A member of the RNA family "Small nucleolar RNA Z105" from Triticum aestivum, 68 nucleotides long. By type it is a C/D-box small nucleolar RNA. Taxonomically the source falls in Triticum (Eukaryota, Mesangiospermae, Petrosaviidae, Triticeae). Gene Ontology terms of the family: RNA processing and nucleolus. On this family, see Chen et al., Nucleic Acids Res 2003: "The high diversity of snoRNAs in plants: identification and comparative study of 120 snoRNA genes from Oryza sativa". The family's consensus secondary structure was predicted with CMfinder.
RNA sequence: CUAGCAUGAUGAGGAAGACAAUUUUUGUCUGAUUUUGUUUGAUGAAUAAAUCCUCCUACACAUUCUGA
Numbered sequence: 001c002u003a004g005c006a007u008g009a010u011g012a013g014g015a016a017g018a019c020a021a022u023u024u025u026u027g028u029c030u031g032a033u034u035u036u037g038u039u040u041g042a043u044g045a046a047u048a049a050a051u052c053c054u055c056c057u058a059c060a061c062a063u064u065c066u067g068a
Base pairs, nucleotide, nucleotide: 006063007062008061025045026044029041